[Rfam]
Overview:
Shown here is a 167-nucleotide RNA from Erinaceus europaeus, a member of the family "U1 spliceosomal RNA". By type it is a spliceosomal small nuclear RNA. The source organism's lineage runs through Eukaryota, Chordata, Vertebrata, Sarcopterygii and Erinaceus. Rfam describes the family as follows. U1 is a small nuclear RNA (snRNA) component of the spliceosome (involved in pre-mRNA splicing). Its 5' end forms complementary base pairs with the 5' splice junction, thus defining the 5' donor site of an intron.
RNA sequence: AUACUUACCUGGCAGGGGAGAUGUUGUGAUCACGAAGGUGAUUUUCCCUGGGCGAGGCUUAUCUACCGCACUCCAAAUGUGCUGAUCCUUGCGAUUUCCCCAAAUGUGGGAAACUUGACUGAAUAAUUUGUGGUGGUGGUGGGGGACUGUAUUCGCGCUCUCCCCUG
Numbered sequence: 001a002u003a004c005u006u007a008c009c010u011g012g013c014a015g016g017g018g019a020g021a022u023g024u025u026g027u028g029a030u031c032a033c034g035a036a037g038g039u040g041a042u043u044u045u046c047c048c049u050g051g052g053c054g055a056g057g058c059u060u061a062u063c064u065a066c067c068g069c070a071c072u073c074c075a076a077a078u079g080u081g082c083u084g085a086u087c088c089u090u091g092c093g094a095u096u097u098c099c100c101c102a103a104a105u106g107u108g109g110g111a112a113a114c115u116u117g118a119c120u121g122a123a124u125a126a127u128u129u130g131u132g133g134u135g136g137u138g139g140u141g142g143g144g145g146a147c148u149g150u151a152u153u154c155g156c157g158c159u160c161u162c163c164c165c166u167g
Stems, first nucleotide, its partner, number of pairs: 013121003016048006023042005050089003054086001056083003060079003064075001092117003095113003099109002141165004146161001149158002